[Rfam]
RNA sequence: AAUAAUGUUCGUAAUAACACUCAUAUAAUGGUGAAGAUAUGGUUCACAAGUUUCUACCAGAUACCGUAAAUAUCUGACUAUGUAGUGCUGUAAAAUUUAUU
Numbered sequence: 001a002a003u004a005a006u007g008u009u010c011g012u013a014a015u016a017a018c019a020c021u022c023a024u025a026u027a028a029u030g031g032u033g034a035a036g037a038u039a040u041g042g043u044u045c046a047c048a049a050g051u052u053u054c055u056a057c058c059a060g061a062u063a064c065c066g067u068a069a070a071u072a073u074c075u076g077a078c079u080a081u082g083u084a085g086u087g088c089u090g091u092a093a094a095a096u097u098u099a100u101u
Stems, first nucleotide, its partner, number of pairs: 018087004022082004029049001031047005058076006

Rfam assigns this 101-nucleotide RNA from Clostridium sp. DSM 8431 to the family "Purine riboswitch aptamer".
A search with the family's covariance model found it, with a score of 79 bits.
The base pairs follow the family's consensus structure, which is taken from published work.